[Rfam]
Shown here is an 82-nucleotide RNA from Rhizobium tibeticum, a member of the family "chrB-a RNA".
RNA sequence: UUCAUGGGGUCGCGAUCACCCCACGAGGCGCCAGCCGAAGAGUCGCGUCCAACGAAGCCGCUAAAACGGAGGACGCGCGAUG
Numbered sequence: 001u002u003c004a005u006g007g008g009g010u011c012g013c014g015a016u017c018a019c020c021c022c023a024c025g026a027g028g029c030g031c032c033a034g035c036c037g038a039a040g041a042g043u044c045g046c047g048u049c050c051a052a053c054g055a056a057g058c059c060g061c062u063a064a065a066a067c068g069g070a071g072g073a074c075g076c077g078c079g080a081u082g
Stems, first nucleotide, its partner, number of pairs: 005023006045076006
Source information: It is annotated as a cis-regulatory element.